[Rfam]
RNA sequence: AAGGCGGUAUCUGAAAAGCCUAUAAGAGAGUAAGAA
Numbered sequence: 001a002a003g004g005c006g007g008u009a010u011c012u013g014a015a016a017a018g019c020c021u022a023u024a025a026g027a028g029a030g031u032a033a034g035a036a
Base pairs, nucleotide, nucleotide: 002021003020004019005018010035011034012033

The family of this 36-nucleotide sequence is "DUF805b RNA". Rfam classes the family as a cis-regulatory element.